[Rfam]
RNA sequence: GAUAGUCGUAGAUAACUAACGGAUCGAGAGUAGGACUCACAACAGUGCGUACUUCCUGAAUAGUCGAGUCGUACAAACCGCCGCAAAACAUCGCUUUCGCUACCAACAACAGCGCGCCUAAUCCCAAAAAAAUCAAGUGAUGUUCCAGGAUAAAACCAAGUUGUUUCGAGUCUUCCCA
Numbered sequence: 001g002a003u004a005g006u007c008g009u010a011g012a013u014a015a016c017u018a019a020c021g022g023a024u025c026g027a028g029a030g031u032a033g034g035a036c037u038c039a040c041a042a043c044a045g046u047g048c049g050u051a052c053u054u055c056c057u058g059a060a061u062a063g064u065c066g067a068g069u070c071g072u073a074c075a076a077a078c079c080g081c082c083g084c085a086a087a088a089c090a091u092c093g094c095u096u097u098c099g100c101u102a103c104c105a106a107c108a109a110c111a112g113c114g115c116g117c118c119u120a121a122u123c124c125c126a127a128a129a130a131a132a133u134c135a136a137g138u139g140a141u142g143u144u145c146c147a148g149g150a151u152a153a154a155a156c157c158a159a160g161u162u163g164u165u166u167c168g169a170g171u172c173u174u175c176c177c178a
Stems, first nucleotide, its partner, number of pairs: 137174001139172003144169002147166002
RNA: Antisense RNA which regulates isiA expression